[Rfam]
RNA sequence: CUUUUACUACAUGAAGGCAUCCUCUGAAACCAAGCUAGUUGUGAGGGGGGUAUCUGAUGAAAUCUAAAAG
Numbered sequence: 001c002u003u004u005u006a007c008u009a010c011a012u013g014a015a016g017g018c019a020u021c022c023u024c025u026g027a028a029a030c031c032a033a034g035c036u037a038g039u040u041g042u043g044a045g046g047g048g049g050g051u052a053u054c055u056g057a058u059g060a061a062a063u064c065u066a067a068a069a070g
Base pairs, nucleotide, nucleotide: 001070002069003068004067005066016054017053019051020050021049022048023047024046025045031041032040033039
Description
Selenocysteine insertion sequence 1: a 70-nucleotide RNA sequence from Sander lucioperca. Pairs were carried over by alignment from the consensus structure, which is taken from published work. The match comes from Rfam's covariance-model search (35 bits). Rfam's curators write: The incorporation of selenocysteine into a protein sequence is directed by an in-frame UGA codon (usually a stop codon) within the coding region of the mRNA. Selenoprotein mRNAs contain a conserved secondary structure in the 3' UTR that is required for the distinction of UGA stop from UGA selenocysteine. Rfam 15.1 lists 3,793 matches to the family in 721 species.